[Rfam]
RNA: Small nucleolar RNA SNORA26
RNA sequence: GUGCCCUUUUAAGGUUGAUACAGUGCCUUAAGAGGCUAACACAGAAGAGUACAGGAACCCUCCAUAAAAUCCAGAGAAGAGACUGACACUCCUCUUUGGAUCCUGUCUGGAGUCACAGCU
Numbered sequence: 001g002u003g004c005c006c007u008u009u010u011a012a013g014g015u016u017g018a019u020a021c022a023g024u025g026c027c028u029u030a031a032g033a034g035g036c037u038a039a040c041a042c043a044g045a046a047g048a049g050u051a052c053a054g055g056a057a058c059c060c061u062c063c064a065u066a067a068a069a070u071c072c073a074g075a076g077a078a079g080a081g082a083c084u085g086a087c088a089c090u091c092c093u094c095u096u097u098g099g100a101u102c103c104u105g106u107c108u109g110g111a112g113u114c115a116c117a118g119c120u
Stems, first nucleotide, its partner, number of pairs: 002051003006047005014040004019035001021032001060112005071099007079091003